[Rfam]
RNA sequence: AAACCUACUUAGUGAUAAGUAGCUGAACUAAGAGAAGUCAGCAGAUGUCAUAGUAUCAGUCCUUUGGACUGAGAAGGAC
Numbered sequence: 001a002a003a004c005c006u007a008c009u010u011a012g013u014g015a016u017a018a019g020u021a022g023c024u025g026a027a028c029u030a031a032g033a034g035a036a037g038u039c040a041g042c043a044g045a046u047g048u049c050a051u052a053g054u055a056u057c058a059g060u061c062c063u064u065u066g067g068a069c070u071g072a073g074a075a076g077g078a079c
Stems, first nucleotide, its partner, number of pairs: 002024001005022007037046003047079003056072006